[Rfam]
RNA sequence: CGCGUUUUUCGCCCAGGCGGAACUCGACCGCCGUCUGAAGACCUGAACAACUUCGUUGAUCAGCAUCGACAGGCUUUCGGGGUCGAGUCGAUCUGCAAGGUGCUGCAGAUCGCCCCG
Numbered sequence: 001c002g003c004g005u006u007u008u009u010c011g012c013c014c015a016g017g018c019g020g021a022a023c024u025c026g027a028c029c030g031c032c033g034u035c036u037g038a039a040g041a042c043c044u045g046a047a048c049a050a051c052u053u054c055g056u057u058g059a060u061c062a063g064c065a066u067c068g069a070c071a072g073g074c075u076u077u078c079g080g081g082g083u084c085g086a087g088u089c090g091a092u093c094u095g096c097a098a099g100g101u102g103c104u105g106c107a108g109a110u111c112g113c114c115c116c117g
Stems, first nucleotide, its partner, number of pairs: 016032005078117005089112002092109006
ALIL pseudoknot: a 117-nucleotide sequence from Hydrogenophaga sp. RAC07. A search with the family's covariance model found it, with a score of 111 bits. Rfam 15.1 lists 2,146 matches to the family in 1,098 species. The source organism's lineage runs through Bacteria, Pseudomonadota, Betaproteobacteria, Burkholderiales and Hydrogenophaga. The base pairs follow the family's consensus structure, which is taken from published work.